[Rfam]
RNA: Mammalian CPEB3 ribozyme
Organism: Alligator sinensis
RNA sequence: UUGCAAGUUCAAAGCUAUAGCAGAAGCGUUCACAGCGCGGCCUGUCAGAUUCCAAACAAAUCUGAAAAUUCUACU
Numbered sequence: 001u002u003g004c005a006a007g008u009u010c011a012a013a014g015c016u017a018u019a020g021c022a023g024a025a026g027c028g029u030u031c032a033c034a035g036c037g038c039g040g041c042c043u044g045u046c047a048g049a050u051u052c053c054a055a056a057c058a059a060a061u062c063u064g065a066a067a068a069u070u071c072u073a074c075u
Stems, first nucleotide, its partner, number of pairs: 014041003019075002022072004026038003046064006